[Rfam]
RNA sequence: CUAUCCAUCUACUCCAAUCACCAACAAGUCUCUCGACUUAUACAAACCACCCAUCAAUCAACAUGAACCCCUGCUCCUGCAACUGCUGCUCCGGCAACUGCAACUCCUGCAGCUGCUCCCAGUGCAGCGUAAGUACAUGUCAUGAAU
Numbered sequence: 001c002u003a004u005c006c007a008u009c010u011a012c013u014c015c016a017a018u019c020a021c022c023a024a025c026a027a028g029u030c031u032c033u034c035g036a037c038u039u040a041u042a043c044a045a046a047c048c049a050c051c052c053a054u055c056a057a058u059c060a061a062c063a064u065g066a067a068c069c070c071c072u073g074c075u076c077c078u079g080c081a082a083c084u085g086c087u088g089c090u091c092c093g094g095c096a097a098c099u100g101c102a103a104c105u106c107c108u109g110c111a112g113c114u115g116c117u118c119c120c121a122g123u124g125c126a127g128c129g130u131a132a133g134u135a136c137a138u139g140u141c142a143u144g145a146a147u
Base pairs, nucleotide, nucleotide: 072096073095074094075093079089080088081087100125101124102123109116110115

Rfam assigns this 147-nucleotide RNA from Paecilomyces variotii to the family "A. fumigatus sRNA Afu_254".
The family's consensus secondary structure was predicted with WAR.
On this family, see Jochl et al., Nucleic Acids Res 2008: "Small ncRNA transcriptome analysis from Aspergillus fumigatus suggests a novel mechanism for regulation of protein synthesis".
A search with the family's covariance model found it, with a score of 83 bits.